This 159-nucleotide RNA sequence from Metabacillus harenarius belongs to the Rfam family "SAM riboswitch aptamer (S box leader)". The organism belongs to Metabacillus, within Bacteria. The SAM riboswitch is found upstream of a number of genes which code for proteins involved in methionine or cysteine biosynthesis in Gram-positive bacteria.
RNA sequence: AUCUUAUCAAGAGAAGCUGAGGGACUGGCCCGUUGAAGCUUCAGCAACCGGUUUAUGUAAGAGGAGACCUAGAAAUGAGGAACAGCUUUCCAAAUUUCCACUCCCAUCAUACCAAGGUGCUAAUUCCAGCUAAGCAUUUCGAUGCUUGAAAGAUAAGGA
Numbered sequence: 001a002u003c004u005u006a007u008c009a010a011g012a013g014a015a016g017c018u019g020a021g022g023g024a025c026u027g028g029c030c031c032g033u034u035g036a037a038g039c040u041u042c043a044g045c046a047a048c049c050g051g052u053u054u055a056u057g058u059a060a061g062a063g064g065a066g067a068c069c070u071a072g073a074a075a076u077g078a079g080g081a082a083c084a085g086c087u088u089u090c091c092a093a094a095u096u097u098c099c100a101c102u103c104c105c106a107u108c109a110u111a112c113c114a115a116g117g118u119g120c121u122a123a124u125u126c127c128a129g130c131u132a133a134g135c136a137u138u139u140c141g142a143u144g145c146u147u148g149a150a151a152g153a154u155a156a157g158g159a
Stems, first nucleotide, its partner, number of pairs: 002158007013042005021031003025129004043121004048117002050113003125151001130148001132147005